[Rfam]
RNA sequence: ACGUCCCGCACGUGAUCGUCUUCUCACCCCUCACCUGCGGGCGGCACAAGGAAGGACCUCCGGCCGGGGACGACUCGGCCGGAGACCCUUC
Numbered sequence: 001a002c003g004u005c006c007c008g009c010a011c012g013u014g015a016u017c018g019u020c021u022u023c024u025c026a027c028c029c030c031u032c033a034c035c036u037g038c039g040g041g042c043g044g045c046a047c048a049a050g051g052a053a054g055g056a057c058c059u060c061c062g063g064c065c066g067g068g069g070a071c072g073a074c075u076c077g078g079c080c081g082g083a084g085a086c087c088c089u090u091c
Stems, first nucleotide, its partner, number of pairs: 002043002005041006012034004018028001051091005058084009
The record is a 91-nucleotide sequence from Streptomyces pilosus, which matches "sodF sRNA" in Rfam. The pairing is the family consensus, mapped onto this sequence. By type it is a small RNA. The family has 6 seed sequences and 336 matches in Rfam 15.1. It scores 58 bits against the family's covariance model.